[Rfam]
RNA sequence: CAAACGACCAUGAUGGGAAGAGUAAGCCGAUCUCCUUAUUUCAGAGAGCCGGGGUAGCUGAAAACCGGUAUAAGCGAGCAAGCUGAACAUGGACCCUGAGUCUUGCAAAUGAACAGUGACGGCAUUGACCGUACCAAGUAGUUUGUGACGUAUGCCCACGUUACGGGUGGAGUCAUGUUUUGACUCACCAAGUCCGUUUUCCGUGAGGGGACGGAGUAUUUGGGUGGUACCGCGAGAUAGAGCUCGCCCCAAUU
Numbered sequence: 001c002a003a004a005c006g007a008c009c010a011u012g013a014u015g016g017g018a019a020g021a022g023u024a025a026g027c028c029g030a031u032c033u034c035c036u037u038a039u040u041u042c043a044g045a046g047a048g049c050c051g052g053g054g055u056a057g058c059u060g061a062a063a064a065c066c067g068g069u070a071u072a073a074g075c076g077a078g079c080a081a082g083c084u085g086a087a088c089a090u091g092g093a094c095c096c097u098g099a100g101u102c103u104u105g106c107a108a109a110u111g112a113a114c115a116g117u118g119a120c121g122g123c124a125u126u127g128a129c130c131g132u133a134c135c136a137a138g139u140a141g142u143u144u145g146u147g148a149c150g151u152a153u154g155c156c157c158a159c160g161u162u163a164c165g166g167g168u169g170g171a172g173u174c175a176u177g178u179u180u181u182g183a184c185u186c187a188c189c190a191a192g193u194c195c196g197u198u199u200u201c202c203g204u205g206a207g208g209g210g211a212c213g214g215a216g217u218a219u220u221u222g223g224g225u226g227g228u229a230c231c232g233c234g235a236g237a238u239a240g241a242g243c244u245c246g247c248c249c250c251a252a253u254u
Base pairs, nucleotide, nucleotide: 007101008100015096016095017094025084026083027082037072038071039070048069049068050067051066052065104147105146106145107144108143109142110141149160150159151158193215194214195213196212197211198210199209200208201207221251222250223249224248232247233246234245235244236243
Dot-bracket structure: ......((......(((.......(((.........(((........(((((............)))))))).........))).........)))...))..(((((((..............................))))))).(((......)))................................(((((((((.....))))))))).....((((.......(((((......)))))))))...